[Rfam]
RNA: Bacterial RNase P class A
RNA sequence: AAAGUUUGACAGACAAUCGCUGGCUGUGGGUAAGCCACAGCGAGAGGAAAGUCCGGGCUCCAUAAGGCAGGGUGCUGGAUAACGUCCAGUCAACGCGAGUUGAAGGAUAGGGCCACAGAAAUGGACCGCCGAUGGUUUCCCGCAAGGGAUUCACAGGCAAGGGUGGAACCGUGGUGUAAGAGACCACGAGGUUCUAUGGUGACAUAGAUCCUGGUAAACCCCACUUGGAGCAAGACCUAGAGGAACGCAAGCCGCUUUCGAGGUGGCAGUCUUAGCCUGAGACGCGUUCGGGUUGGUCGCUUGAGCUGUGCAGCAAUGUAUGGCCUAGAUAGAUGAUUGUCACUUCAAUGGUGGCAGGGGACAGACGCCCGCUAUGACCACUGGAAGUACAGAACCCGGCUUACGGCAAACUUUCCAU
Numbered sequence: 001a002a003a004g005u006u007u008g009a010c011a012g013a014c015a016a017u018c019g020c021u022g023g024c025u026g027u028g029g030g031u032a033a034g035c036c037a038c039a040g041c042g043a044g045a046g047g048a049a050a051g052u053c054c055g056g057g058c059u060c061c062a063u064a065a066g067g068c069a070g071g072g073u074g075c076u077g078g079a080u081a082a083c084g085u086c087c088a089g090u091c092a093a094c095g096c097g098a099g100u101u102g103a104a105g106g107a108u109a110g111g112g113c114c115a116c117a118g119a120a121a122u123g124g125a126c127c128g129c130c131g132a133u134g135g136u137u138u139c140c141c142g143c144a145a146g147g148g149a150u151u152c153a154c155a156g157g158c159a160a161g162g163g164u165g166g167a168a169c170c171g172u173g174g175u176g177u178a179a180g181a182g183a184c185c186a187c188g189a190g191g192u193u194c195u196a197u198g199g200u201g202a203c204a205u206a207g208a209u210c211c212u213g214g215u216a217a218a219c220c221c222c223a224c225u226u227g228g229a230g231c232a233a234g235a236c237c238u239a240g241a242g243g244a245a246c247g248c249a250a251g252c253c254g255c256u257u258u259c260g261a262g263g264u265g266g267c268a269g270u271c272u273u274a275g276c277c278u279g280a281g282a283c284g285c286g287u288u289c290g291g292g293u294u295g296g297u298c299g300c301u302u303g304a305g306c307u308g309u310g311c312a313g314c315a316a317u318g319u320a321u322g323g324c325c326u327a328g329a330u331a332g333a334u335g336a337u338u339g340u341c342a343c344u345u346c347a348a349u350g351g352u353g354g355c356a357g358g359g360g361a362c363a364g365a366c367g368c369c370c371g372c373u374a375u376g377a378c379c380a381c382u383g384g385a386a387g388u389a390c391a392g393a394a395c396c397c398g399g400c401u402u403a404c405g406g407c408a409a410a411c412u413u414u415c416c417a418u
Stems, first nucleotide, its partner, number of pairs: 001414008010405001012341007020044002023041006049402003053399005058230004065278004070226005075089005090104001091102004105221002110219001112215003126162002128158003133153003170188006191210001193208006234298004243289006269283005305324008